[Rfam]
RNA sequence: UCGUCAACAGGGCACACCCGUUGAAAGACGGGGUCGCAAAGCUACGGGCCUAAGGAGGAUAUCUAUCCUCUAUGGCAGCCGGGCCGCCGGC
Numbered sequence: 001u002c003g004u005c006a007a008c009a010g011g012g013c014a015c016a017c018c019c020g021u022u023g024a025a026a027g028a029c030g031g032g033g034u035c036g037c038a039a040a041g042c043u044a045c046g047g048g049c050c051u052a053a054g055g056a057g058g059a060u061a062u063c064u065a066u067c068c069u070c071u072a073u074g075g076c077a078g079c080c081g082g083g084c085c086g087c088c089g090g091c
Base pairs, nucleotide, nucleotide: 012037013036017032018031019030020029021028022027041084042083043082045081046080047079048076049075050074055070056069057068058067059066060065
Background:
Rfam assigns this 91-nucleotide RNA from Paenibacillus sambharensis to the family "c-di-GMP-I riboswitch aptamer".